[Rfam]
Notes
Rfam assigns this 131-nucleotide RNA from Pipistrellus kuhlii to the family "mir-9261 microRNA precursor family".
RNA sequence: AACAAUUUUUCCCACGUCCCACGGCAUUUUUAAAAAGUCCCGAUUUUUGAAAAGAUCGAAAACAUUGGAAAGAUUCUUUCCAAAAAUCAGGACUUUUUAAAAAUGCCGUGGGACGUGGGAAAAAUUGUUAG
Numbered sequence: 001a002a003c004a005a006u007u008u009u010u011c012c013c014a015c016g017u018c019c020c021a022c023g024g025c026a027u028u029u030u031u032a033a034a035a036a037g038u039c040c041c042g043a044u045u046u047u048u049g050a051a052a053a054g055a056u057c058g059a060a061a062a063c064a065u066u067g068g069a070a071a072g073a074u075u076c077u078u079u080c081c082a083a084a085a086a087u088c089a090g091g092a093c094u095u096u097u098u099a100a101a102a103a104u105g106c107c108g109u110g111g112g113a114c115g116u117g118g119g120a121a122a123a124a125u126u127g128u129u130a131g
Base pairs, nucleotide, nucleotide: 001129002128003127004126005125006124007123008122009121010120011119012118013117014116015115016114017113018112019111020110021109022108023107024106025105026104027103028102029101030100031099032098033097034096035095036094037093038092039091040090
The source organism's lineage runs through Eukaryota, Dipnotetrapodomorpha, Mammalia, Vespertilionidae and Pipistrellus. Rfam 15.1 lists 196 matches to the family in 3 species.